[Rfam]
RNA sequence: AACCUAGAAAGUAUGACACAAUAAGAAUAAGUAUGUUCUGCAGAAAUUUAGAGAAAGCUGGCCAUAGUAAAGCCAUGUUACGAGCCUUAAAGACAUUGAAGUCGUUCAGGUCUCGGAAAAUGGCUAUAAGA
Numbered sequence: 001a002a003c004c005u006a007g008a009a010a011g012u013a014u015g016a017c018a019c020a021a022u023a024a025g026a027a028u029a030a031g032u033a034u035g036u037u038c039u040g041c042a043g044a045a046a047u048u049u050a051g052a053g054a055a056a057g058c059u060g061g062c063c064a065u066a067g068u069a070a071a072g073c074c075a076u077g078u079u080a081c082g083a084g085c086c087u088u089a090a091a092g093a094c095a096u097u098g099a100a101g102u103c104g105u106u107c108a109g110g111u112c113u114c115g116g117a118a119a120a121u122g123g124c125u126a127u128a129a130g131a
Base pairs, nucleotide, nucleotide: 004061005060006059007058017043072124073123074122075121084111085110086109087108089106090105092103093102094101

The record is a 131-nucleotide sequence from Myotis davidii, which matches "Small nucleolar RNA SNORA33" in Rfam. Rfam classes the family as an H/ACA-box small nucleolar RNA. Pairs were carried over by alignment from the consensus structure, which was predicted with PFOLD. About the family: ACA33 is a member of the H/ACA class of snoRNA that guide the sites of modification of uridines to pseudouridines.